[Rfam]
Nucleotides: 062
Base pairs, nucleotide, nucleotide: 002059003058005056009049010048011047012046013045022044023043024042030037031036
Number, partner (000 for none) and nucleotide at each position: 001000c002059c003058u004000g005056u006000g007000g008000a009049g010048u011047g012046u013045u014000a015000u016000a017000u018000c019000a020000a021000a022044c023043u024042g025000u026000a027000g028000u029000a030037g031036c032000u033000u034000a035000g036031g037030c038000a039000a040000g041000g042024c043023a044022g045013g046012a047011c048010a049009c050000g051000a052000u053000u054000a055000a056005a057000g058003a059002g060000a061000a062000a